[Rfam]
RNA sequence: UACAUUGCACAGUGGCAGUAUAGAAGCCAAUGAGGUGUAUCAGAGGCACGAUUAUUGCUAAUUGAAACUAUAUUACAUAUUUAUUAUUUUAAAUAUGUUGAGAACUGUAUUUGAACAUAAUUGAUUCCUUUGGAA
Numbered sequence: 001u002a003c004a005u006u007g008c009a010c011a012g013u014g015g016c017a018g019u020a021u022a023g024a025a026g027c028c029a030a031u032g033a034g035g036u037g038u039a040u041c042a043g044a045g046g047c048a049c050g051a052u053u054a055u056u057g058c059u060a061a062u063u064g065a066a067a068c069u070a071u072a073u074u075a076c077a078u079a080u081u082u083a084u085u086a087u088u089u090u091a092a093a094u095a096u097g098u099u100g101a102g103a104a105c106u107g108u109a110u111u112u113g114a115a116c117a118u119a120a121u122u123g124a125u126u127c128c129u130u131u132g133g134a135a
Stems, first nucleotide, its partner, number of pairs: 020052002023049001026047003035041001085119003088115010
Shown here is a 135-nucleotide sequence from Thamnophis sirtalis, a member of the family "U4 spliceosomal RNA". Rfam describes the family as follows. U4 small nuclear RNA (U4 snRNA) is a component of the major U2-dependent spliceosome. The organism belongs to Thamnophis, within Eukaryota.